[Rfam]
RNA sequence: AGUAUUUGCCGCCACAACGUUCGUAUAACCCCACUAAAACGGUGUGGGGGUCUCUACCAGGUACCGACAGCUCCUGCUUACGACUCGCUGAUGCGCCAAC
Numbered sequence: 001a002g003u004a005u006u007u008g009c010c011g012c013c014a015c016a017a018c019g020u021u022c023g024u025a026u027a028a029c030c031c032c033a034c035u036a037a038a039a040c041g042g043u044g045u046g047g048g049g050g051u052c053u054c055u056a057c058c059a060g061g062u063a064c065c066g067a068c069a070g071c072u073c074c075u076g077c078u079u080a081c082g083a084c085u086c087g088c089u090g091a092u093g094c095g096c097c098a099a100c
Stems, first nucleotide, its partner, number of pairs: 019085001021083005029049006058076004
RNA: Purine riboswitch aptamer
Organism: Ferrimonas aestuarii